Background: This 121-nucleotide sequence from Cupriavidus agavae belongs to the Rfam family "Glycine riboswitch aptamer". The source organism's lineage runs through Bacteria, Pseudomonadota, Betaproteobacteria, Burkholderiaceae and Cupriavidus.

[Rfam]
RNA sequence: AUGCCGCACUCUGGAGAGCGACAUCCGCCGCGUCUUGAUCACCGGCGAGCAUGUCCACCGAAGGGGCGCACGGAGCCUGAGGCUUCGUAAUCUCUCAGGUAUCGAGGACAGAGGGGUCAUC
Numbered sequence: 001a002u003g004c005c006g007c008a009c010u011c012u013g014g015a016g017a018g019c020g021a022c023a024u025c026c027g028c029c030g031c032g033u034c035u036u037g038a039u040c041a042c043c044g045g046c047g048a049g050c051a052u053g054u055c056c057a058c059c060g061a062a063g064g065g066g067c068g069c070a071c072g073g074a075g076c077c078u079g080a081g082g083c084u085u086c087g088u089a090a091u092c093u094c095u096c097a098g099g100u101a102u103c104g105a106g107g108a109c110a111g112a113g114g115g116g117u118c119a120u121c
Base pairs, nucleotide, nucleotide: 007115009113010112011111012110013109020055021054022053023052057100058099059098060096061095064094065093066092070088071087072086073085074084075083